The record is a 111-nucleotide sequence from Phytoactinopolyspora halophila, which matches "SAM riboswitch aptamer (S box leader)" in Rfam. Rfam describes the family as follows. The SAM riboswitch is found upstream of a number of genes which code for proteins involved in methionine or cysteine biosynthesis in Gram-positive bacteria. The SAM riboswitch acts at the level of transcription termination control. The predicted structure consists of a complex stem-loop region followed by a single stem loop terminator region.
RNA sequence: UACUCAUCCAGAGGGGCAGAGGGACCGGCCCGGUGAAGCCCCGGCAACCGCCCGCAUUGGCGCGGGAGUGGUGCCAAGUCCGGCCCGCUGGCCACGCGGGACAGAUGAGGG
Number, nucleotide and partner (000 for none) at each position: 001u111002a000003c109004u108005c107006a106007u105008c104009c000010a000011g000012a000013g042014g041015g040016g039017c038018a000019g000020a000021g031022g030023g029024a000025c083026c082027g081028g080029c023030c022031c021032g000033g000034u000035g000036a000037a000038g017039c016040c015041c014042c013043g075044g074045c073046a072047a000048c071049c070050g000051c066052c065053c064054g000055c000056a000057u000058u000059g000060g000061c000062g000063c000064g053065g052066g051067a000068g000069u000070g049071g048072u046073g045074c044075c043076a000077a000078g000079u103080c028081c027082g026083g025084c100085c099086c098087g097088c096089u000090g000091g000092c000093c000094a000095c000096g088097c087098g086099g085100g084101a000102c000103a079104g008105a007106u006107g005108a004109g003110g000111g001